[Rfam]
A member of the RNA family "FMN riboswitch aptamer (RFN element)" from Aquibacillus koreensis, 148 nucleotides long. Taxonomically the source falls in Aquibacillus (Bacteria, Bacillati, Bacillota, Bacilli). Rfam links the family to the GO term FMN binding.

RNA sequence: UUCUAUCUUCGGGGCAGGGUGAAAUUCCCGACCGACGGUGAUAAGUGUAGCUACACUUUUAGUCCGUGACCCGUUUCCUUUUUUGGAGACGGUGGACCUGGUGCAAAUCCGGGACCGACAGUUAAAGUCUGGAUGGGAGAAGAUAAGG
Numbered sequence: 001u002u003c004u005a006u007c008u009u010c011g012g013g014g015c016a017g018g019g020u021g022a023a024a025u026u027c028c029c030g031a032c033c034g035a036c037g038g039u040g041a042u043a044a045g046u047g048u049a050g051c052u053a054c055a056c057u058u059u060u061a062g063u064c065c066g067u068g069a070c071c072c073g074u075u076u077c078c079u080u081u082u083u084u085g086g087a088g089a090c091g092g093u094g095g096a097c098c099u100g101g102u103g104c105a106a107a108u109c110c111g112g113g114a115c116c117g118a119c120a121g122u123u124a125a126a127g128u129c130u131g132g133a134u135g136g137g138a139g140a141a142g143a144u145a146a147g148g
Stems, first nucleotide, its partner, number of pairs: 004145007017029003031128002033117002035067004062115002071092002097113005119131003